[Rfam]
About this RNA:
Rfam assigns this 73-nucleotide sequence from Petromyzon marinus to the family "mir-24 microRNA precursor family". Lineage of the source: Eukaryota > Bilateria > Deuterostomia > Cyclostomata > Petromyzon. On this family, see Lagos-Quintana et al., Science 2001: "Identification of novel genes coding for small expressed RNAs". Rfam's curators put it in the seed alignment.
RNA sequence: AUCUUCUGUGCCUACUGUUCUGACAUCAGUCGUCUAUAAAAAGCACUGGCUCAGUUCAGCAGGAACAGAAGUC
Numbered sequence: 001a002u003c004u005u006c007u008g009u010g011c012c013u014a015c016u017g018u019u020c021u022g023a024c025a026u027c028a029g030u031c032g033u034c035u036a037u038a039a040a041a042a043g044c045a046c047u048g049g050c051u052c053a054g055u056u057c058a059g060c061a062g063g064a065a066c067a068g069a070a071g072u073c
Stems, first nucleotide, its partner, number of pairs: 003071004008066002011063003015059003020054004026049005